pemK RNA: an 81-nucleotide RNA sequence from Coprobacillus cateniformis. Rfam's curators put it in the seed alignment.

RNA sequence: UUAAAGAUACUCCUGCAUAGCCACAGACUCAAGCAAUGGGUGCAGCCCGGAGAGAUCCUCGGGGAGGUGAAAUUCCUGUGA
Numbered sequence: 001u002u003a004a005a006g007a008u009a010c011u012c013c014u015g016c017a018u019a020g021c022c023a024c025a026g027a028c029u030c031a032a033g034c035a036a037u038g039g040g041u042g043c044a045g046c047c048c049g050g051a052g053a054g055a056u057c058c059u060c061g062g063g064g065a066g067g068u069g070a071a072a073u074u075c076c077u078g079u080g081a
Stems, first nucleotide, its partner, number of pairs: 012078001013045006046064003050060003065077003